Rfam assigns this 96-nucleotide RNA sequence from Lachnospiraceae bacterium oral taxon 500 to the family "SAM riboswitch aptamer (S box leader)".
[Rfam]
Nucleotides: 096
Stems, first nucleotide, its partner, number of pairs: 001096008013043005021032002029072001044067004049063002051059003076085003
Number, partner (000 for none) and nucleotide at each position: 001096c002095a003094c004093u005092u006091a007090u008089u009000a010000a011000g012000a013043g014042u015041g016040a017039c018000g019000g020000a021032g022031a023000g024000u025000u026000a027000a028000g029072g030000a031022u032021c033000u034000g035000u036000g037000a038000u039017g040016u041015c042014a043013c044067g045066g046065c047064a048000a049063c050062c051059c052058c053057u054000u055000u056000u057053a058052g059051g060000a061000a062050g063049g064047u065046g066045c067044c068000a069000a070000c071000c072029u073000g074000a075000g076085c077084g078083a079000g080000a081000a082000a083078u084077c085076g086000a087000g088000c089008a090007a091006u092005g093004a094003g095002u096001g
It scores 63 bits against the family's covariance model. Rfam links the family to the GO term regulation of gene expression.